[Rfam]
RNA sequence: AAAAUUCUUCGGGGCAGGGUGCAAUUCCCUACCGGCGGUAAAGUCCGCGACCCGCGAAAGCGGCUGAUUUGGUGAGAUUCCAAAACCGACAGUACAGUCUGGAUGAGAGAAGAAAUUA
Numbered sequence: 001a002a003a004a005u006u007c008u009u010c011g012g013g014g015c016a017g018g019g020u021g022c023a024a025u026u027c028c029c030u031a032c033c034g035g036c037g038g039u040a041a042a043g044u045c046c047g048c049g050a051c052c053c054g055c056g057a058a059a060g061c062g063g064c065u066g067a068u069u070u071g072g073u074g075a076g077a078u079u080c081c082a083a084a085a086c087c088g089a090c091a092g093u094a095c096a097g098u099c100u101g102g103a104u105g106a107g108a109g110a111a112g113a114a115a116u117u118a
Stems, first nucleotide, its partner, number of pairs: 003116001005114006017029003031098002033088002035048004043086002052063002068084005090101003

Record summary
Rfam assigns this 118-nucleotide sequence from Blautia sp. An249 to the family "FMN riboswitch aptamer (RFN element)". A search with the family's covariance model found it, with a score of 121 bits.